[Rfam]
RNA: Trans-activating crRNA
RNA sequence: UGUUGGGGUUAUUCAACACAACAUAGCGAGUUAAAAUAAGGCUUUGUCCGAAAUCAACUGAAAUGUUGCGCUGUCUCGGCGCUUUUUCU
Numbered sequence: 001u002g003u004u005g006g007g008g009u010u011a012u013u014c015a016a017c018a019c020a021a022c023a024u025a026g027c028g029a030g031u032u033a034a035a036a037u038a039a040g041g042c043u044u045u046g047u048c049c050g051a052a053a054u055c056a057a058c059u060g061a062a063a064u065g066u067u068g069c070g071c072u073g074u075c076u077c078g079g080c081g082c083u084u085u086u087u088c089u
Stems, first nucleotide, its partner, number of pairs: 001036001003034003008027005040049002057066001068082006